[Rfam]
This 79-nucleotide RNA sequence from Hermetia illucens belongs to the Rfam family "drz-agam-1 ribozyme". Rfam 15.1 lists 10,507 matches to the family in 53 species. Taxonomically the source falls in Hermetia (Eukaryota, Pancrustacea, Allotriocarida, Dicondylia). A search with the family's covariance model found it, with a score of 38 bits.
RNA sequence: UACUACCAAACCCUAUCUCCACCUCCACGUGGUGAUCGCUGAGAGUUCUUUCUUUAUGAAAAACUGCAGACGGAGAAGG
Numbered sequence: 001u002a003c004u005a006c007c008a009a010a011c012c013c014u015a016u017c018u019c020c021a022c023c024u025c026c027a028c029g030u031g032g033u034g035a036u037c038g039c040u041g042a043g044a045g046u047u048c049u050u051u052c053u054u055u056a057u058g059a060a061a062a063a064c065u066g067c068a069g070a071c072g073g074a075g076a077a078g079g
Stems, first nucleotide, its partner, number of pairs: 012079003016075001018073002021033003044065004049060002052058001